[Rfam]
RNA sequence: UGAGUGUUUAAGGCCAUAGCAGAAGUGUUCAUGGUGCAGCGAUAUCACAGUCUAAUGAAUCUGUGAAUUCUGCU
Number, nucleotide and partner (000 for none) at each position: 001u000002g000003a000004g000005u000006g000007u000008u000009u000010a000011a000012g000013g040014c039015c000016a000017u000018a074019g073020c072021a071022g070023a069024a068025g037026u036027g035028u000029u000030c000031a000032u000033g000034g000035u027036g026037c025038a000039g014040c013041g000042a000043u000044a000045u000046c063047a062048c000049a060050g000051u058052c057053u000054a000055a000056u000057g052058a051059a000060u049061c000062u047063g046064u000065g000066a000067a000068u024069u023070c022071u021072g020073c019074u018